[Rfam]
RNA: Bacterial RNase P class A
RNA sequence: UGAGGAAGACAGGCAAUCACGGAUCAUAUAGAUGACGGUCCGAGGAAAGUCCGAACUCCAUAGAGCAGGAUGCUGGCUAACGGCCAGUGAGAGUGAUCUCAAGGAUAGUGCCACAGAAACAUACCGCCAGGCCAACGGCCAGGUAAGGGUGAAAUGGUGAGGUAAGAGCUCACCAGCAGCCAGGUGACUGGUUGGUUGGGUAAACCCCAUCUGGAGCAAGACCAAGCAGAGGGGAUAGCCCUUGUGCAAUGCAUAGGGGUUAGCAGGUUGCUCGCUUGUGAACCUUCGGGUUGGUCGCUUGAGGCGUUAGGUAACUAACGUCCUAGAUAGAUGGUUGCCCCCCAUGUAGUCGAGAGGCGACAUGGGGACAGAAUUCGGCUUACGGCUCCCUCAACUC
Numbered sequence: 001u002g003a004g005g006a007a008g009a010c011a012g013g014c015a016a017u018c019a020c021g022g023a024u025c026a027u028a029u030a031g032a033u034g035a036c037g038g039u040c041c042g043a044g045g046a047a048a049g050u051c052c053g054a055a056c057u058c059c060a061u062a063g064a065g066c067a068g069g070a071u072g073c074u075g076g077c078u079a080a081c082g083g084c085c086a087g088u089g090a091g092a093g094u095g096a097u098c099u100c101a102a103g104g105a106u107a108g109u110g111c112c113a114c115a116g117a118a119a120c121a122u123a124c125c126g127c128c129a130g131g132c133c134a135a136c137g138g139c140c141a142g143g144u145a146a147g148g149g150u151g152a153a154a155u156g157g158u159g160a161g162g163u164a165a166g167a168g169c170u171c172a173c174c175a176g177c178a179g180c181c182a183g184g185u186g187a188c189u190g191g192u193u194g195g196u197u198g199g200g201u202a203a204a205c206c207c208c209a210u211c212u213g214g215a216g217c218a219a220g221a222c223c224a225a226g227c228a229g230a231g232g233g234g235a236u237a238g239c240c241c242u243u244g245u246g247c248a249a250u251g252c253a254u255a256g257g258g259g260u261u262a263g264c265a266g267g268u269u270g271c272u273c274g275c276u277u278g279u280g281a282a283c284c285u286u287c288g289g290g291u292u293g294g295u296c297g298c299u300u301g302a303g304g305c306g307u308u309a310g311g312u313a314a315c316u317a318a319c320g321u322c323c324u325a326g327a328u329a330g331a332u333g334g335u336u337g338c339c340c341c342c343c344a345u346g347u348a349g350u351c352g353a354g355a356g357g358c359g360a361c362a363u364g365g366g367g368a369c370a371g372a373a374u375u376c377g378g379c380u381u382a383c384g385g386c387u388c389c390c391u392c393a394a395c396u397c
Base pairs, nucleotide, nucleotide: 001393002392003391004390005389007387008386010384012339013338014337015336016335017334018333020042021041022040023039024038025037027035047381048380049379051378052377053376054375055374056216057215058214059213063273064272065271066270068212069211070210071209072208073087074086075085076084077083088102089100090099091098092097103207104206108205109204110201111200112199124148125147126144127143128142130140131139132138133137156174157173158172159171160170161169176196177194178193179192180191181190182189183188220296221295222294223293229287230286231285232284233283264278265277266276267275268274303322304321305320306319307318308317309316310315